A member of the RNA family "Burkholderia RNA 11" from Rubrivivax sp., 122 nucleotides long. It is annotated as a small RNA. Pairs were carried over by alignment from the consensus structure, which was predicted with RNAfold. NCBI's taxonomy places the organism under Bacteria, Pseudomonadati, Pseudomonadota, Burkholderiales, Rubrivivax. About the family: Co-purified with Hfq, expression confirmed by Northern blot. Predicted target marZ. Overlaps coding sequence.
RNA sequence: GCAACCUGGUGCUGGCCGCGCAGUACCCCAGCGUGUUCCGCUCGCUGCUGGGCAUCUCGUGGAUGUGGUUCUUCGGCGCAGUGUUCCUGUCGCAGUUCCCCUCGUUCGCCCGCGAGGUGCUG
Numbered sequence: 001g002c003a004a005c006c007u008g009g010u011g012c013u014g015g016c017c018g019c020g021c022a023g024u025a026c027c028c029c030a031g032c033g034u035g036u037u038c039c040g041c042u043c044g045c046u047g048c049u050g051g052g053c054a055u056c057u058c059g060u061g062g063a064u065g066u067g068g069u070u071c072u073u074c075g076g077c078g079c080a081g082u083g084u085u086c087c088u089g090u091c092g093c094a095g096u097u098c099c100c101c102u103c104g105u106u107c108g109c110c111c112g113c114g115a116g117g118u119g120c121u122g
Stems, first nucleotide, its partner, number of pairs: 011048002014045001018041002022037005051121005057115006063105003067099002071095002074092005081086001